[Rfam]
RNA sequence: GCCUUGGUAGCUCAGGCUGGUAGAGCAACUCCUUUGUAAGGAGUCAGUCGAGAGUUCAAAUCUCUCCCAAGGCU
Numbered sequence: 001g002c003c004u005u006g007g008u009a010g011c012u013c014a015g016g017c018u019g020g021u022a023g024a025g026c027a028a029c030u031c032c033u034u035u036g037u038a039a040g041g042a043g044u045c046a047g048u049c050g051a052g053a054g055u056u057c058a059a060a061u062c063u064c065u066c067c068c069a070a071g072g073c074u
Stems, first nucleotide, its partner, number of pairs: 001073007010026004028044005050066005

Shown here is a 74-nucleotide RNA from a halophilic archaeon, a member of the family "tRNA". A search with the family's covariance model found it, with a score of 66 bits. It is annotated as a transfer RNA.